[Rfam]
RNA sequence: CUGCGUCUAAAAUUGAAAUCCACCAUGCUGCCCUCCCCAUGGCGCCCGGUGUGCAGUGGCUGCAAAUAGCAGCCUCCUGGAUAGUGUAUACAACCUGAUGCUUGUAUAGGCUGCCCUAAGGGACCCUGGAGACAGUC
Numbered sequence: 001c002u003g004c005g006u007c008u009a010a011a012a013u014u015g016a017a018a019u020c021c022a023c024c025a026u027g028c029u030g031c032c033c034u035c036c037c038c039a040u041g042g043c044g045c046c047c048g049g050u051g052u053g054c055a056g057u058g059g060c061u062g063c064a065a066a067u068a069g070c071a072g073c074c075u076c077c078u079g080g081a082u083a084g085u086g087u088a089u090a091c092a093a094c095c096u097g098a099u100g101c102u103u104g105u106a107u108a109g110g111c112u113g114c115c116c117u118a119a120g121g122g123a124c125c126c127u128g129g130a131g132a133c134a135g136u137c
Stems, first nucleotide, its partner, number of pairs: 002055004022050003028044001030043002080125001082123001091113002094110003
RNA: Small nucleolar RNA SNORA70
Organism: Erinaceus europaeus